The record is a 210-nucleotide RNA from Aerococcus urinaehominis, which matches "T-box leader" in Rfam.

RNA sequence: UGAACAUCUAUGAAGCAAAGAGUAGCAGGCGUCAACUCGAUUAGCGAGGUAAGGACUGGUGAGAGCUUACCCAGAGCGUUUGUGAACUGCAUUGUGGAGAUGGUCCGGUCAAAUCAUAGCCGGAUUCGCAGAAAUGCGUUAAAAUUUUCGAGAUUAUAGGCCUAGUGUCUAUAAACAAGAGUGGUAUCGUGGGAAGAACCCGCCUCUUAU
Numbered sequence: 001u002g003a004a005c006a007u008c009u010a011u012g013a014a015g016c017a018a019a020g021a022g023u024a025g026c027a028g029g030c031g032u033c034a035a036c037u038c039g040a041u042u043a044g045c046g047a048g049g050u051a052a053g054g055a056c057u058g059g060u061g062a063g064a065g066c067u068u069a070c071c072c073a074g075a076g077c078g079u080u081u082g083u084g085a086a087c088u089g090c091a092u093u094g095u096g097g098a099g100a101u102g103g104u105c106c107g108g109u110c111a112a113a114u115c116a117u118a119g120c121c122g123g124a125u126u127c128g129c130a131g132a133a134a135u136g137c138g139u140u141a142a143a144a145u146u147u148u149c150g151a152g153a154u155u156a157u158a159g160g161c162c163u164a165g166u167g168u169c170u171a172u173a174a175a176c177a178a179g180a181g182u183g184g185u186a187u188c189g190u191g192g193g194a195a196g197a198a199c200c201c202g203c204c205u206c207u208u209a210u
Stems, first nucleotide, its partner, number of pairs: 007100002015095004025083006037074001039072001048071006103125007127138003155173007178207004189203005
The match comes from Rfam's covariance-model search (105 bits).